[Rfam]
Rfam assigns this 58-nucleotide sequence from Dictyostelium discoideum to the family "Class I RNA from Dictyostelium". Rfam's curators put it in the seed alignment. Dictyostelium Class I RNA was first reported for Aspegren et al. 2004 in Dictyostelium discoideum. It is annotated as a non-coding RNA gene. On this family, see Kjellin et al., Genome Res 2021: "Abundantly expressed class of noncoding RNAs conserved through the multicellular evolution of dictyostelid social amoebas".

RNA sequence: GUUGACCUUACAGCAAAUCCUGCAGUUCCUUCAUUCUAAGAAAACCUUUCGCCAACUG
Numbered sequence: 001g002u003u004g005a006c007c008u009u010a011c012a013g014c015a016a017a018u019c020c021u022g023c024a025g026u027u028c029c030u031u032c033a034u035u036c037u038a039a040g041a042a043a044a045c046c047u048u049u050c051g052c053c054a055a056c057u058g
Stems, first nucleotide, its partner, number of pairs: 001056004006051001